Lysine riboswitch aptamer: a 174-nucleotide sequence from Roseburia sp. 1XD42-69. The organism belongs to Roseburia, within Bacteria. It scores 109 bits against the family's covariance model. Rfam describes the family as follows. Riboswitches are metabolite binding domains within certain messenger RNAs that serve as precision sensors for their corresponding targets.
RNA sequence: UAGUCGGAUAGAGGUUGCGUGAUUCAUGAGUAGCUUACCGGAUGUGGCAGGCACAGAGGAAGAUAAGCGAAGGGGGAGAGCGCCGAAAGAAAAUGUUUCCUGCAAAGGUUUUCUUGGGGAUGUAUUGAAGAAGUACAUAACUGUCAUCUUUUCAGAUGGUGCGCUAUCAGAGGA
Numbered sequence: 001u002a003g004u005c006g007g008a009u010a011g012a013g014g015u016u017g018c019g020u021g022a023u024u025c026a027u028g029a030g031u032a033g034c035u036u037a038c039c040g041g042a043u044g045u046g047g048c049a050g051g052c053a054c055a056g057a058g059g060a061a062g063a064u065a066a067g068c069g070a071a072g073g074g075g076g077a078g079a080g081c082g083c084c085g086a087a088a089g090a091a092a093a094u095g096u097u098u099c100c101u102g103c104a105a106a107g108g109u110u111u112u113c114u115u116g117g118g119g120a121u122g123u124a125u126u127g128a129a130g131a132a133g134u135a136c137a138u139a140a141c142u143g144u145c146a147u148c149u150u151u152u153c154a155g156a157u158g159g160u161g162c163g164c165u166a167u168c169a170g171a172g173g174a
Stems, first nucleotide, its partner, number of pairs: 007168005017083004023077003033068005039062001087115008096106003116142002120138007144159005